[Rfam]
RNA sequence: ACAAUGAUACUUCCGUAAUUCGCGGCCCGGCCAUGAAGAAGGCGGGGCGGCCGAAAGGCCGAUGG
Numbered sequence: 001a002c003a004a005u006g007a008u009a010c011u012u013c014c015g016u017a018a019u020u021c022g023c024g025g026c027c028c029g030g031c032c033a034u035g036a037a038g039a040a041g042g043c044g045g046g047g048c049g050g051c052c053g054a055a056a057g058g059c060c061g062a063u064g065g
Stems, first nucleotide, its partner, number of pairs: 012062001013025004026047003030043003048061003